[Rfam]
RNA sequence: GGAGAACUGAAGUCGAGUGGUGGAUAGAUUGUACAUUUCGCUAUGUUCUAUAUGAAUUUCUAGCACCAUUCGAAAUCAGUACUUA
Numbered sequence: 001g002g003a004g005a006a007c008u009g010a011a012g013u014c015g016a017g018u019g020g021u022g023g024a025u026a027g028a029u030u031g032u033a034c035a036u037u038u039c040g041c042u043a044u045g046u047u048c049u050a051u052a053u054g055a056a057u058u059u060c061u062a063g064c065a066c067c068a069u070u071c072g073a074a075a076u077c078a079g080u081a082c083u084u085a
Stems, first nucleotide, its partner, number of pairs: 002084003005080001007079004013073003017069006025062004
RNA: mir-29 microRNA precursor family